[Rfam]
Shown here is an 83-nucleotide RNA from Glomus cerebriforme, a member of the family "tRNA". The family's RNA type in Rfam is transfer RNA. The match comes from Rfam's covariance-model search (50 bits).

RNA sequence: GGAGACAUGCCCGAGUGGUCAAAGGGGUCAGUUUCGAAAACUGUACGCAGAAAUGCACGAGGGUUCAAAUCCCCCUGUCUCCU
Dot-bracket structure: (((((((..(((...........)))..((((.......))))...............(.(((.......))).)))))))).